[Rfam]
RNA: Small nucleolar RNA SNORD18
Organism: Setaria italica
RNA sequence: GGGAUAUGAUGAAGAACCUUUGGUCCGUGUUUCUGAUCAACCCUUGAUGAGUAAACCACUCCUAAAGAAUCUGAUCCC
Numbered sequence: 001g002g003g004a005u006a007u008g009a010u011g012a013a014g015a016a017c018c019u020u021u022g023g024u025c026c027g028u029g030u031u032u033c034u035g036a037u038c039a040a041c042c043c044u045u046g047a048u049g050a051g052u053a054a055a056c057c058a059c060u061c062c063u064a065a066a067g068a069a070u071c072u073g074a075u076c077c078c
Base pairs, nucleotide, nucleotide: 001078002077003076004075